RNA sequence: UGACGGGGGCCCGCACAAGCGGUGGAGUAUGUGGUUUAAUUCGAUGCAACGCGAAGAACCUUACCAGAACUUGACAUGUCGAGAACUGUGGCGAGAGCGACAGGUGCCUUAGGGAACUCGAACACAGGUGGUGCAUGGCUGUCGUCAGCUCGUGUCGUGAGAUGUUGGGUUAAGUCCCGCAACGAGCGCAACCCUCGUUCUUAGUUGCCAGCAUUUAGUUGGGCACUUUAGGAAGACUGCCGGUGACAAACCGGAGGAAGGUGGGGAUGACGUCAAGUCAGCAUGCCCCUUACGUUCUGGGCUACACACGUACUACAAUGGUUGGGACAAAGGGCAGCCAACUCGCAAGAGUGAGCGAAUCUCAGCAAACCCAGCCUCAGUUCAGAUUGCAGGCUGCAACUCGCCUGCAUGAAGGAGGAAUCGCUAGUAAUCGCCGGUCAGCAUACGGCGGUGAAUUCGUUCCCGGGCCUUGUACACACCGCCCGUCACACCAUGGAAGUUGGCCACGCCCGAAGUCGUUACCCUAACCUGCUUGCAGGAGGGGGAUGCCGAAGGCAGGGCUGGUGACUAGGGUGAAGUCGUAACAAGG
Number, nucleotide and partner (000 for none) at each position: 001u476002g475003a473004c472005g471006g000007g470008g469009g468010c467011c466012c465013g464014c000015a460016c459017a000018a000019g424020c423021g422022g421023u420024g316025g000026a314027g313028u312029a311030u310031g309032u308033g307034g305035u304036u000037u000038a000039a000040u055041u054042c053043g052044a000045u000046g000047c000048a000049a000050c000051g000052c043053g042054a041055a040056g000057a000058a000059c000060c000061u000062u000063a000064c300065c299066a298067g297068a296069a295070c294071u000072u000073g000074a000075c000076a000077u124078g123079u121080c120081g119082a118083g117084a000085a000086c103087u102088g101089u100090g000091g098092c097093g000094a000095g000096a000097g092098c091099g000100a089101c088102a087103g086104g000105u116106g000107c114108c113109u000110u000111a000112g000113g108114g107115a000116a105117c083118u082119c081120g080121a079122a000123c078124a077125c000126a000127g289128g288129u000130g287131g286132u285133g284134c000135a000136u283137g282138g278139c277140u276141g274142u000143c272144g271145u000146c000147a000148g187149c186150u185151c184152g183153u182154g163155u162156c161157g000158u000159g000160a000161g156162a155163u154164g000165u000166u179167g178168g177169g176170u000171u000172a000173a000174g000175u000176c169177c168178c167179g166180c000181a000182a153183c152184g151185a150186g149187c148188g000189c000190a000191a000192c000193c266194c265195u264196c263197g000198u234199u233200c232201u231202u230203a229204g228205u000206u000207g000208c223209c222210a000211g000212c221213a220214u000215u000216u000217a000218g000219u000220u213221g212222g209223g208224c000225a000226c000227u000228u204229u203230a202231g201232g200233a199234a198235g000236a000237c257238u256239g000240c254241c253242g252243g251244u250245g000246a000247c000248a000249a000250a244251c243252c242253g241254g240255a000256g238257g237258a000259a000260g000261g000262u000263g196264g195265g194266g193267a000268u000269g000270a000271c144272g143273u000274c141275a000276a140277g139278u138279c000280a000281g000282c137283a136284u133285g132286c131287c130288c128289c127290u000291u000292a000293c000294g070295u069296u068297c067298u066299g065300g064301g000302c000303u000304a035305c034306a000307c033308a032309c031310g030311u029312a028313c027314u026315a000316c024317a000318a000319u000320g376321g375322u374323u373324g372325g371326g370327a000328c000329a000330a000331a000332g363333g362334g361335c000336a000337g356338c355339c000340a000341a000342c351343u350344c349345g000346c000347a000348a000349g344350a343351g342352u000353g000354a000355g338356c337357g000358a000359a000360u000361c334362u333363c332364a000365g000366c000367a000368a000369a000370c326371c325372c324373a323374g322375c321376c320377u000378c000379a000380g000381u000382u000383c414384a000385g000386a000387u000388u409389g408390c407391a406392g405393g404394c403395u000396g000397c000398a000399a000400c000401u000402c000403g394404c393405c392406u391407g390408c389409a388410u000411g000412a000413a000414g383415g000416a000417g000418g000419a000420a023421u022422c021423g020424c019425u000426a000427g000428u000429a000430a452431u451432c450433g449434c448435c447436g446437g000438u000439c000440a000441g000442c000443a000444u000445a000446c436447g435448g434449c433450g432451g431452u430453g000454a000455a000456u000457u000458c000459g016460u015461u000462c000463c000464c013465g012466g011467g010468c009469c008470u007471u005472g004473u003474a000475c002476a001477c000478a000479c588480c000481g585482c000483c000484c581485g580486u000487c000488a000489c575490a574491c573492c572493a000494u570495g569496g568497a000498a000499g565500u564501u563502g562503g561504c560505c559506a000507c000508g556509c555510c554511c000512g000513a000514a000515g550516u000517c548518g547519u546520u545521a000522c544523c543524c542525u541526a000527a000528c539529c538530u537531g536532c000533u000534u000535g000536c531537a530538g529539g528540a000541g525542g524543g523544g522545g520546a519547u518548g517549c000550c515551g000552a000553a000554g510555g509556c508557a000558g000559g505560g504561c503562u502563g501564g500565u499566g000567a000568c496569u495570a494571g000572g492573g491574u490575g489576a000577a000578g000579u000580c485581g484582u000583a000584a000585c481586a000587a000588g479589g000
RNA: Bacterial small subunit ribosomal RNA, nucleotides 869 to 1457